[Rfam]
RNA: Small nucleolar RNA SNORD18
Organism: Arachis hypogaea
RNA sequence: GAGACAUGAUGAUUUUUAUAUUGGUCCGUGUUUCUGAAUUACCGUGACCGACAUCUUUUUCCAAUCUCUGAUCUC
Numbered sequence: 001g002a003g004a005c006a007u008g009a010u011g012a013u014u015u016u017u018a019u020a021u022u023g024g025u026c027c028g029u030g031u032u033u034c035u036g037a038a039u040u041a042c043c044g045u046g047a048c049c050g051a052c053a054u055c056u057u058u059u060u061c062c063a064a065u066c067u068c069u070g071a072u073c074u075c
Base pairs, nucleotide, nucleotide: 001075002074003073004072